[Rfam]
RNA sequence: CACACGUGGGGCAUGGGUUGGUCCGGGAGAAAUCCGGAUUGGUCCGCCGGUGGCGCUUAUGCGCUCACGCCCUGCGGAGGUUCAACCGGAAACAGGAGAACA
Numbered sequence: 001c002a003c004a005c006g007u008g009g010g011g012c013a014u015g016g017g018u019u020g021g022u023c024c025g026g027g028a029g030a031a032a033u034c035c036g037g038a039u040u041g042g043u044c045c046g047c048c049g050g051u052g053g054c055g056c057u058u059a060u061g062c063g064c065u066c067a068c069g070c071c072c073u074g075c076g077g078a079g080g081u082u083c084a085a086c087c088g089g090a091a092a093c094a095g096g097a098g099a100a101c102a
Base pairs, nucleotide, nucleotide: 001079003077005076006075007074008073009072010071011070015045016044024036025035027034053064054063055062056061

This 102-nucleotide sequence from Parahoeflea phototrophica belongs to the Rfam family "rpsB sRNA". Rfam 15.1 lists 245 matches to the family in 245 species. The organism belongs to Parahoeflea phototrophica, within Bacteria. A reference for the family is Meyer et al. (2009), "Identification of candidate structured RNAs in the marine organism 'Candidatus Pelagibacter ubique'", BMC Genomics.